Description:
mir-9318 microRNA precursor family: a 75-nucleotide RNA sequence from Eptesicus fuscus. The family's consensus secondary structure was predicted with RNAalifold. It is one of the family's seed sequences. Rfam links the family to the GO terms miRNA-mediated post-transcriptional gene silencing and RISC complex.
RNA sequence: UCUCCCCCCAGUGUUGACCGUGGGUGUGUCCCCAUCAGGGGAGGGGGGCAUCUCUGACAUGUACUGGUAGGUGCA
Number, nucleotide and partner (000 for none) at each position: 001u000002c071003u070004c000005c000006c000007c067008c066009c000010a065011g064012u063013g062014u000015u059016g058017a000018c056019c000020g054021u050022g049023g000024g000025u000026g000027u043028g000029u042030c041031c040032c039033c038034a000035u000036c000037a000038g033039g032040g031041g030042a029043g027044g000045g000046g000047g000048g000049c022050a021051u000052c000053u000054c020055u000056g018057a000058c016059a015060u000061g000062u013063a012064c011065u010066g008067g007068u000069a000070g003071g002072u000073g000074c000075a000